[Rfam]
RNA sequence: UUUGGUGAGAUCCAUGUGGGUUUCACACUUUGGAAAUGGAUCCCACAUAAAAUGGUGAGACCCGCAUGGGUUUCACCCAA
Numbered sequence: 001u002u003u004g005g006u007g008a009g010a011u012c013c014a015u016g017u018g019g020g021u022u023u024c025a026c027a028c029u030u031u032g033g034a035a036a037u038g039g040a041u042c043c044c045a046c047a048u049a050a051a052a053u054g055g056u057g058a059g060a061c062c063c064g065c066a067u068g069g070g071u072u073u074c075a076c077c078c079a080a
Stems, first nucleotide, its partner, number of pairs: 001080002004077015023058003026054002029051004
Rfam assigns this 80-nucleotide RNA from Medicago truncatula to the family "MIR5269 microRNA precursor family". The family's consensus secondary structure was predicted with RNAalifold. Its family is annotated with RISC complex and miRNA-mediated post-transcriptional gene silencing in the Gene Ontology.